[Rfam]
The record is a 117-nucleotide sequence from Erwinia tracheiphila, which matches "STnc490 Hfq binding RNA" in Rfam. It scores 82 bits against the family's covariance model. The organism belongs to Erwinia, within Bacteria. Rfam 15.1 lists 285 matches to the family in 122 species. Pairs were carried over by alignment from the consensus structure, which was predicted with WAR.
RNA sequence: AACCCCCCAGUCAGGCUGGGGUUCAGUAAAGCUUUCAGCCAGUUAUCAAAACCUCGGUUGAUUUGUUAAAAAACCUUGCGGUCUGGCAACUGCAAAAGUUUAACAAGAAAUCCAAAG
Numbered sequence: 001a002a003c004c005c006c007c008c009a010g011u012c013a014g015g016c017u018g019g020g021g022u023u024c025a026g027u028a029a030a031g032c033u034u035u036c037a038g039c040c041a042g043u044u045a046u047c048a049a050a051a052c053c054u055c056g057g058u059u060g061a062u063u064u065g066u067u068a069a070a071a072a073a074c075c076u077u078g079c080g081g082u083c084u085g086g087c088a089a090c091u092g093c094a095a096a097a098g099u100u101u102a103a104c105a106a107g108a109a110a111u112c113c114a115a116a117g
Stems, first nucleotide, its partner, number of pairs: 001023004007019005028035002055117001058114001060112004064105004070100002076095007